[Rfam]
RNA: Small nucleolar RNA snoR27
Organism: Ensete ventricosum
RNA sequence: UAUGAUCAGUGAUGUGAUAUGUACAUAAUCUGCGUUAUCUUUCUGUUACUCCUUUCGAGGAAUUGAAGAUGACUAUGAGACACUGAGAUUAAUA
Numbered sequence: 001u002a003u004g005a006u007c008a009g010u011g012a013u014g015u016g017a018u019a020u021g022u023a024c025a026u027a028a029u030c031u032g033c034g035u036u037a038u039c040u041u042u043c044u045g046u047u048a049c050u051c052c053u054u055u056c057g058a059g060g061a062a063u064u065g066a067a068g069a070u071g072a073c074u075a076u077g078a079g080a081c082a083c084u085g086a087g088a089u090u091a092a093u094a
Base pairs, nucleotide, nucleotide: 001094002093003091004090005089006088